[Rfam]
RNA: Small nucleolar RNA SNORD2
RNA sequence: AAGUGAGAUGAUGGUAUACCAUCUUUCGGGACUGACCUGAAAUGGAGACACCUCUUAAUUUGCUGAUCACUU
Numbered sequence: 001a002a003g004u005g006a007g008a009u010g011a012u013g014g015u016a017u018a019c020c021a022u023c024u025u026u027c028g029g030g031a032c033u034g035a036c037c038u039g040a041a042a043u044g045g046a047g048a049c050a051c052c053u054c055u056u057a058a059u060u061u062g063c064u065g066a067u068c069a070c071u072u
Stems, first nucleotide, its partner, number of pairs: 001072006